[Rfam]
The family of this 66-nucleotide RNA sequence from Molossus molossus is "Small nucleolar RNA SNORD58". snoRNA U58 is found in introns 1, 3 and 6 of the ribosomal protein RPL17 gene in humans.
RNA sequence: UUGCUGUGAUGGCAGUCUUAGGACACCUUUGGAUUAACCAUGAAAAACAAACAUGUUCUGAGCAAC
Dot-bracket structure: ((((.........................................................)))).
The source organism's lineage runs through Eukaryota, Bilateria, Deuterostomia, Theria and Molossus.
Pairs were carried over by alignment from the consensus structure, which was predicted with PFOLD.